This 201-nucleotide RNA sequence from Heterocephalus glaber belongs to the Rfam family "Small nucleolar RNA SNORA74". Its Rfam clan is "SNORA74 clan". By type it is an H/ACA-box small nucleolar RNA. A search with the family's covariance model found it, with a score of 185 bits. Rfam describes the family as follows. U19 belongs to the H/ACA class of snoRNAs. snoRNAs bind a number of proteins (including dyskerin, Gar1p and Nop10p in the case of the H/ACA class) to form snoRNP complexes. This class are thought to guide the sites of modification of uridines to pseudouridines by forming direct base pairing interactions with substrate RNAs. Targets may include ribosomal and spliceosomal RNAs but the exact functions of many snoRNAs, including U19, are not confirmed.

RNA sequence: UCCAGCAGUUGUCAGCUGUCUGGGCUAGUGUGGUGCCUGUGAUUGUGUUACACUGUUGGAAGAGCAAGCACUGUCUUUAUUGAGGUUUGGCUCUACACGCUGUUUUGGUGUUGUGGUCUCGCGCCUUUGAGCAGUGUUUUGUACCUCUGAGAGUGGACUGGCUUCUGCUGUGGAGUUGGUCCUAGUCUGGGUACAAACAUU
Numbered sequence: 001u002c003c004a005g006c007a008g009u010u011g012u013c014a015g016c017u018g019u020c021u022g023g024g025c026u027a028g029u030g031u032g033g034u035g036c037c038u039g040u041g042a043u044u045g046u047g048u049u050a051c052a053c054u055g056u057u058g059g060a061a062g063a064g065c066a067a068g069c070a071c072u073g074u075c076u077u078u079a080u081u082g083a084g085g086u087u088u089g090g091c092u093c094u095a096c097a098c099g100c101u102g103u104u105u106u107g108g109u110g111u112u113g114u115g116g117u118c119u120c121g122c123g124c125c126u127u128u129g130a131g132c133a134g135u136g137u138u139u140u141g142u143a144c145c146u147c148u149g150a151g152a153g154u155g156g157a158c159u160g161g162c163u164u165c166u167g168c169u170g171u172g173g174a175g176u177u178g179g180u181c182c183u184a185g186u187c188u189g190g191g192u193a194c195a196a197a198c199a200u201u
Base pairs, nucleotide, nucleotide: 001060002059003058004057005056006055007054008053009052011051012050015046016045018043019042020041021039022038023037024036025035068137069136070135071134072133073132074131076129082127083126084125085124086123089118090117091116092115094113095112098110099109100108101107139196140195141194142193143192144191145190146189155182156181157180159178160177161176162175163174164173165172